[Rfam]
RNA sequence: UGUCUCCUCCACCCUCCUCAACCAGGUGGAUUAAGCCCGAGCGAUUGCGUUCGGGCUUUUUUUC
Numbered sequence: 001u002g003u004c005u006c007c008u009c010c011a012c013c014c015u016c017c018u019c020a021a022c023c024a025g026g027u028g029g030a031u032u033a034a035g036c037c038c039g040a041g042c043g044a045u046u047g048c049g050u051u052c053g054g055g056c057u058u059u060u061u062u063u064c
Stems, first nucleotide, its partner, number of pairs: 008030006034057008
The family of this 64-nucleotide RNA sequence from Paraburkholderia dinghuensis is "Betaproteobacteria toxic small RNA".
Rfam describes the family as follows. Overexpression in amino aid rich medium attenuates growth, suggesting role in repressing amino acid intake and metabolism.
The match comes from Rfam's covariance-model search (64 bits).